Background
This 269-nucleotide part of an RNA from uncultured marine crenarchaeote AD1000-325-A12 belongs to the Rfam family "Archaeal large subunit ribosomal RNA". The sequence is in the family's curated seed alignment.

[Rfam]
RNA sequence: GAGUUUUUUGUUAUGGCGAGCCUAAAAGUUUUAAGCUUGUAAGCGAAGGGAAACCGACUUUCUGUAUUAUUGAUUAUUUCAAUUUGAGAGAAGAGGUCUGAAAGGGCCUUUAGUCAUAGCGAUAAGACUAGAAACUCCGCGAUCGUGCCUUGGGUAGGAUGAAGCCUGGAGAAAUCUGGGUAGAGGUCCGCAAGGGUCUUGACGUGCAAAUCAGUCCCCUGACCUGAGGCAAGGGGCCAAAAGCCAAUCUAGCGGAGUGAUAGCUAGUU
Numbered sequence: 001g002a003g004u005u006u007u008u009u010g011u012u013a014u015g016g017c018g019a020g021c022c023u024a025a026a027a028g029u030u031u032u033a034a035g036c037u038u039g040u041a042a043g044c045g046a047a048g049g050g051a052a053a054c055c056g057a058c059u060u061u062c063u064g065u066a067u068u069a070u071u072g073a074u075u076a077u078u079u080c081a082a083u084u085u086g087a088g089a090g091a092a093g094a095g096g097u098c099u100g101a102a103a104g105g106g107c108c109u110u111u112a113g114u115c116a117u118a119g120c121g122a123u124a125a126g127a128c129u130a131g132a133a134a135c136u137c138c139g140c141g142a143u144c145g146u147g148c149c150u151u152g153g154g155u156a157g158g159a160u161g162a163a164g165c166c167u168g169g170a171g172a173a174a175u176c177u178g179g180g181u182a183g184a185g186g187u188c189c190g191c192a193a194g195g196g197u198c199u200u201g202a203c204g205u206g207c208a209a210a211u212c213a214g215u216c217c218c219c220u221g222a223c224c225u226g227a228g229g230c231a232a233g234g235g236g237c238c239a240a241a242a243g244c245c246a247a248u249c250u251a252g253c254g255g256a257g258u259g260a261u262a263g264c265u266a267g268u269u
Base pairs, nucleotide, nucleotide: 005125006124008122009121010120011119012118013117014116015115016114017113020044021043023041026038027037028036029035048055049054060092061091062090063089069083070082071081072080073079095108096107097106098105128267129266131264135257136256137255138254139253140252144233146231147230148229149228150227151226152225153224154223155221157189158188159187160186164181165180166179167178168177169176170175194218195217196216198214199213201212202211235245236244237243